[Rfam]
RNA: Cyanobacterial ribosomal protein S1 leader
RNA sequence: UUCUGUAAAAUUAAAAAUUACUGACCCUUUGUCGGCGGGCGCUGGGUCAAUUUUUAUCGCACUGUCCUCGGGCAGACCGCCAU
Numbered sequence: 001u002u003c004u005g006u007a008a009a010a011u012u013a014a015a016a017a018u019u020a021c022u023g024a025c026c027c028u029u030u031g032u033c034g035g036c037g038g039g040c041g042c043u044g045g046g047u048c049a050a051u052u053u054u055u056a057u058c059g060c061a062c063u064g065u066c067c068u069c070g071g072g073c074a075g076a077c078c079g080c081c082a083u
Base pairs, nucleotide, nucleotide: 023048024047025046026045028044030041031040032039034081035080036079037078038077062075063074064073065072066071